A member of the RNA family "Small nucleolar RNA SNORA23" from Anabas testudineus, 181 nucleotides long. Rfam links the family to the GO terms nucleolus and RNA processing. The family's RNA type in Rfam is H/ACA-box small nucleolar RNA. About the family: The members of this family belong to the H/ACA class of snoRNAs which are thought to guide the sites of modification of uridines to pseudouridines. The organism belongs to Anabas, within Eukaryota.
Nucleotides: 181
Stems, first nucleotide, its partner, number of pairs: 013091003030080002035077001036075006043068002045065003050060003107174005120160006127152001129146002132143003
Number, partner (000 for none) and nucleotide at each position: 001000g002000g003000u004000g005000g006000a007000u008000g009000g010000u011000g012000u013091g014090c015089a016000c017000g018000g019000u020000g021000u022000u023000c024000g025000u026000c027000u028000g029000u030080g031079u032000u033000a034000u035077g036075u037074g038073u039072u040071g041070c042000u043068g044067c045065c046064a047063g048000g049000c050060u051059g052058u053000g054000u055000u056000u057000u058052g059051c060050a061000g062000u063047u064046u065045g066000g067044g068043c069000a070041g071040c072039a073038g074037c075036g076000c077035u078000c079031a080030c081000u082000c083000c084000a085000c086000a087000c088000u089015u090014g091013c092000a093000g094000c095000c096000a097000c098000a099000g100000a101000a102000u103000a104000a105000c106000u107174g108173g109172a110171g111170a112000u113000c114000a115000u116000a117000g118000u119000a120160c121159u122158g123157g124156c125155c126000c127152u128000u129146g130145a131000c132143g133142u134141c135000u136000u137000c138000a139000c140000c141134g142133a143132c144000a145130u146129c147000u148000c149000a150000c151000c152127a153000u154000u155125g156124g157123c158122c159121a160120g161000c162000c163000u164000c165000c166000a167000u168000a169000g170111u171110c172109u173108c174107c175000c176000a177000c178000a179000u180000g181000u